[Rfam]
RNA sequence: CUCUUAUCUAGAGAAGCGGAGGGAUCUGGCCCUGAGAAGCUUCAGCAACCAUCAUUUAUUGAACGGUGCUAAUGCCAGUAGAUUGUGAGUUCUAGUCGAUGAGAG
Numbered sequence: 001c002u003c004u005u006a007u008c009u010a011g012a013g014a015a016g017c018g019g020a021g022g023g024a025u026c027u028g029g030c031c032c033u034g035a036g037a038a039g040c041u042u043c044a045g046c047a048a049c050c051a052u053c054a055u056u057u058a059u060u061g062a063a064c065g066g067u068g069c070u071a072a073u074g075c076c077a078g079u080a081g082a083u084u085g086u087g088a089g090u091u092c093u094a095g096u097c098g099a100u101g102a103g104a105g
Stems, first nucleotide, its partner, number of pairs: 001105008013043005021032003026078004044070004049066002052062003074097001079094004084089001